[Rfam]
RNA sequence: AUGAAAGAGGUUCUUAGCGUAAACCCUCUAUAAAAAACUAAGGGCAU
Number, nucleotide and partner (000 for none) at each position: 001a000002u000003g000004a000005a000006a029007g028008a027009g026010g025011u000012u000013c000014u000015u040016a039017g000018c000019g000020u000021a000022a000023a000024c000025c010026c009027u008028c007029u006030a000031u000032a000033a000034a000035a000036a000037a000038c000039u016040a015041a000042g000043g000044g000045c000046a000047u000

This 47-nucleotide RNA sequence from Natronobacillus azotifigens belongs to the Rfam family "PreQ1 (pre queuosine) riboswitch aptamer". The base pairs follow the family's consensus structure. Gene Ontology term of the family: queuosine biosynthetic process. Rfam 15.1 lists 873 matches to the family in 692 species. Rfam describes the family as follows. This family is a bacterial riboswitch that binds to the metabolite preQ1, an intermediate in the biosynthesis of the modified nucleoside queuosine from GTP. One example of this riboswitch is located in the leader of the Bacillus subtilis ykvJKLM (queCDEF) operon which encodes four genes necessary for queuosine production. PreQ1 binding to the riboswitch aptamer is thought to induce premature transcription termination within the leader to down-regulate expression of these genes. On this family, see Reader et al., J Biol Chem 2004: "Identification of four genes necessary for biosynthesis of the modified nucleoside queuosine".